[Rfam]
RNA sequence: GCACCCGUUCGCGACUGGCGUGCCGAGGGUGGAACCGACCACCGGGGAGCGAGGCCGGAACGCACCGCGCGCCUGGGUGCCACGG
Numbered sequence: 001g002c003a004c005c006c007g008u009u010c011g012c013g014a015c016u017g018g019c020g021u022g023c024c025g026a027g028g029g030u031g032g033a034a035c036c037g038a039c040c041a042c043c044g045g046g047g048a049g050c051g052a053g054g055c056c057g058g059a060a061c062g063c064a065c066c067g068c069g070c071g072c073c074u075g076g077g078u079g080c081c082a083c084g085g
Stems, first nucleotide, its partner, number of pairs: 004057001008053005015046002017073005029042004062080005
The record is an 85-nucleotide RNA from Saccharothrix syringae, which matches "ZMP/ZTP riboswitch aptamer (pfl RNA motif)" in Rfam.
The source organism's lineage runs through Bacteria, Actinomycetota, Actinomycetes, Pseudonocardiaceae and Saccharothrix.
It scores 49 bits against the family's covariance model.
A reference for the family is Kim et al. (2015), "An ancient riboswitch class in bacteria regulates purine biosynthesis and one-carbon metabolism", Mol Cell.